Streptomyces sRNA 4677: a 255-nucleotide RNA sequence from Streptomyces ferrugineus. For this family Rfam cites "Complex intra-operonic dynamics mediated by a small RNA in Streptomyces coelicolor" (Hindra et al., PLoS One, 2014). Rfam's curators write: Located in the intergenic region between anti-sigma factor SCO4677 gene and a putative regulatory protein gene SCO4676. scr4677 expression requires the SCO4677 activity and scr4677 sRNA itself seem to affect the levels of the SCO4676-associated transcripts.

RNA sequence: CGCUCCGGUGGCACGGGCCGUCUCCCUCAAGAAACACACCGGUGAAAGAACCCCCACCAAGCCCCACCCCUCCCGCCCACGGCGCAAACUCACCCAAGCGGGUGAACAUCACCAACUCGGCUGGAUUCGGAAGCUGUUGCCUGCCUUACGCUCAGCGCGACACGACCGCAGGCAUGCACCAGACAUGCAACGGCCCUCGCCGGGACUGGCAUCCCAAUGCGAGGGCCUGACCACCAAGGAAGUAGCGCCUUCCCG
Numbered sequence: 001c002g003c004u005c006c007g008g009u010g011g012c013a014c015g016g017g018c019c020g021u022c023u024c025c026c027u028c029a030a031g032a033a034a035c036a037c038a039c040c041g042g043u044g045a046a047a048g049a050a051c052c053c054c055c056a057c058c059a060a061g062c063c064c065c066a067c068c069c070c071u072c073c074c075g076c077c078c079a080c081g082g083c084g085c086a087a088a089c090u091c092a093c094c095c096a097a098g099c100g101g102g103u104g105a106a107c108a109u110c111a112c113c114a115a116c117u118c119g120g121c122u123g124g125a126u127u128c129g130g131a132a133g134c135u136g137u138u139g140c141c142u143g144c145c146u147u148a149c150g151c152u153c154a155g156c157g158c159g160a161c162a163c164g165a166c167c168g169c170a171g172g173c174a175u176g177c178a179c180c181a182g183a184c185a186u187g188c189a190a191c192g193g194c195c196c197u198c199g200c201c202g203g204g205a206c207u208g209g210c211a212u213c214c215c216a217a218u219g220c221g222a223g224g225g226c227c228u229g230a231c232c233a234c235c236a237a238g239g240a241a242g243u244a245g246c247g248c249c250u251u252c253c254c255g
Stems, first nucleotide, its partner, number of pairs: 007235004016077003020074001090105006120156005192227005198221003202215004238253005

Rfam 15.1 lists 563 matches to the family in 285 species.